[Rfam]
RNA sequence: AAUCAUGCGCAGUGACAGUAUCAUAGUCUAUGAGGUUCAUCUGAGGUGUGAUUAUUGCUAGUUGAAAAUUUUACCCAAUACCUUGCCUUGGUGAUUUGAAAUAUAAUCGUCAAAGGCAAUGUUAGACAGUCUCUAUGGAGA
Numbered sequence: 001a002a003u004c005a006u007g008c009g010c011a012g013u014g015a016c017a018g019u020a021u022c023a024u025a026g027u028c029u030a031u032g033a034g035g036u037u038c039a040u041c042u043g044a045g046g047u048g049u050g051a052u053u054a055u056u057g058c059u060a061g062u063u064g065a066a067a068a069u070u071u072u073a074c075c076c077a078a079u080a081c082c083u084u085g086c087c088u089u090g091g092u093g094a095u096u097u098g099a100a101a102u103a104u105a106a107u108c109g110u111c112a113a114a115g116g117c118a119a120u121g122u123u124a125g126a127c128a129g130u131c132u133c134u135a136u137g138g139a140g141a
Stems, first nucleotide, its partner, number of pairs: 020052005026047003034042002085117003088113009130141004

This 141-nucleotide sequence from Nothobranchius furzeri belongs to the Rfam family "U4 spliceosomal RNA".
The match comes from Rfam's covariance-model search (95 bits).
NCBI's taxonomy places the organism under Eukaryota, Vertebrata, Euteleosteomorpha, Neoteleostei, Nothobranchius.
Rfam describes the family as follows. U4 small nuclear RNA (U4 snRNA) is a component of the major U2-dependent spliceosome.
Rfam classes the family as a spliceosomal small nuclear RNA.